Background
A member of the RNA family "SAM-I/IV (S-adenosyl methionine) riboswitch aptamer" from Flavobacteriaceae bacterium PRS1, 91 nucleotides long. The family has 417 seed sequences and 567 matches in Rfam 15.1. The base pairs follow the family's consensus structure, which is taken from published work. The organism belongs to Flavobacteriaceae, within Bacteria. On this family, see Weinberg et al., RNA 2008: "The aptamer core of SAM-IV riboswitches mimics the ligand-binding site of SAM-I riboswitches". It scores 59 bits against the family's covariance model.
[Rfam]
RNA sequence: UAAUAACAUCAAGAGUCAUUAAAUUGACAGCAACCGAGUUAAAACACCACGGUGCUAAAAAGAUGAGCCAAAUGGAAAAUAAGUUUGCUUC
Numbered sequence: 001u002a003a004u005a006a007c008a009u010c011a012a013g014a015g016u017c018a019u020u021a022a023a024u025u026g027a028c029a030g031c032a033a034c035c036g037a038g039u040u041a042a043a044a045c046a047c048c049a050c051g052g053u054g055c056u057a058a059a060a061a062g063a064u065g066a067g068c069c070a071a072a073u074g075g076a077a078a079a080u081a082a083g084u085u086u087g088c089u090u091c
Stems, first nucleotide, its partner, number of pairs: 007065004015028004029056003034052003038047002042086004068075002